[Rfam]
RNA: COG2827 RNA
Organism: bacterium D16-54
RNA sequence: GCUGGUGCUUCAGAUAGAUCAGGGAAACCUGGACGGUAUGCGUGAACUUGCAAGCACGGAUGCCGUCUACAUA
Numbered sequence: 001g002c003u004g005g006u007g008c009u010u011c012a013g014a015u016a017g018a019u020c021a022g023g024g025a026a027a028c029c030u031g032g033a034c035g036g037u038a039u040g041c042g043u044g045a046a047c048u049u050g051c052a053a054g055c056a057c058g059g060a061u062g063c064c065g066u067c068u069a070c071a072u073a
Stems, first nucleotide, its partner, number of pairs: 020031004032067008041058004